[Rfam]
LOOT RNA: a 120-nucleotide RNA.
The base pairs follow the family's consensus structure, which is taken from published work.
The family's RNA type in Rfam is small RNA.
Nucleotides: 120
Base pairs, nucleotide, nucleotide: 002032003031004030009026010025011024012023013022042083043082044081045080046079047078048077049076050075051074052073058072059071060070061069085104086103087102088101089100090099091098092097105120106119107118108117109116110115
Number, partner (000 for none) and nucleotide at each position: 001000c002032g003031c004030c005000u006000a007000a008000a009026c010025c011024u012023u013022a014000c015000a016000a017000u018000u019000u020000u021000a022013u023012a024011a025010g026009g027000c028000a029000u030004g031003g032002c033000a034000c035000a036000a037000a038000a039000a040000a041000a042083c043082c044081g045080a046079u047078c048077a049076a050075g051074g052073u053000a054000u055000a056000g057000a058072g059071c060070u061069c062000g063000u064000c065000g066000u067000c068000a069061g070060a071059g072058c073052a074051c075050c076049u077048u078047g079046a080045u081044c082043g083042g084000u085104c086103a087102u088101a089100u090099c091098u092097c093000g094000a095000a096000a097092g098091a099090g100089g101088u102087a103086u104085g105120g106119g107118u108117c109116c110115c111000g112000c113000a114000a115110g116109g117108g118107a119106u120105c